[Rfam]
Shown here is a 93-nucleotide RNA from Cytobacillus solani, a member of the family "c-di-GMP-I riboswitch aptamer". NCBI's taxonomy places the organism under Bacteria, Bacillati, Bacilli, Bacillaceae, Cytobacillus. Rfam links the family to the GO term cyclic-di-GMP binding.

RNA sequence: UAUAGAAAAAGGCAAACCUGCUGAAAGGCAGGGACGCAAAGUCACAGGUCUAAGGUAUGUUGGAUAAAAUACUAGGAUGGCUGGGUUGCCUUA
Numbered sequence: 001u002a003u004a005g006a007a008a009a010a011g012g013c014a015a016a017c018c019u020g021c022u023g024a025a026a027g028g029c030a031g032g033g034a035c036g037c038a039a040a041g042u043c044a045c046a047g048g049u050c051u052a053a054g055g056u057a058u059g060u061u062g063g064a065u066a067a068a069a070u071a072c073u074a075g076g077a078u079g080g081c082u083g084g085g086u087u088g089c090c091u092u093a
Stems, first nucleotide, its partner, number of pairs: 012037002017032006040087004045083003048078003055072004
The match comes from Rfam's covariance-model search (81 bits).
On this family, see Weinberg et al., Nucleic Acids Res 2007: "Identification of 22 candidate structured RNAs in bacteria using the CMfinder comparative genomics pipeline".